[Rfam]
RNA sequence: GGCCUCCCUCUGUGGGGUGAUUGAUCACAGGGCACCCAGAUCGAUCACCUCACAGAGGGAGGCC
Numbered sequence: 001g002g003c004c005u006c007c008c009u010c011u012g013u014g015g016g017g018u019g020a021u022u023g024a025u026c027a028c029a030g031g032g033c034a035c036c037c038a039g040a041u042c043g044a045u046c047a048c049c050u051c052a053c054a055g056a057g058g059g060a061g062g063c064c
Stems, first nucleotide, its partner, number of pairs: 001064026030037002
RNA: mir-9242 microRNA precursor family
Organism: Myotis myotis